[Rfam]
Source information: The record is a 62-nucleotide RNA sequence from Merluccius polli, which matches "mir-728 microRNA precursor family" in Rfam. Rfam 15.1 lists 193 matches to the family in 98 species. NCBI's taxonomy places the organism under Eukaryota, Deuterostomia, Eurypterygia, Gadiformes, Merluccius. The base pairs follow the family's consensus structure, which was predicted with RNAalifold.
RNA sequence: AAAUGUAGUAGACUAUAAGUAUACAUGAACUCUCAGGAGUAUACUAAGUACACUACGUUUAA
Numbered sequence: 001a002a003a004u005g006u007a008g009u010a011g012a013c014u015a016u017a018a019g020u021a022u023a024c025a026u027g028a029a030c031u032c033u034c035a036g037g038a039g040u041a042u043a044c045u046a047a048g049u050a051c052a053c054u055a056c057g058u059u060u061a062a
Base pairs, nucleotide, nucleotide: 001060002059003058004057005056006055007054008053009052012049013048014047018045019044020043021042022041023040024039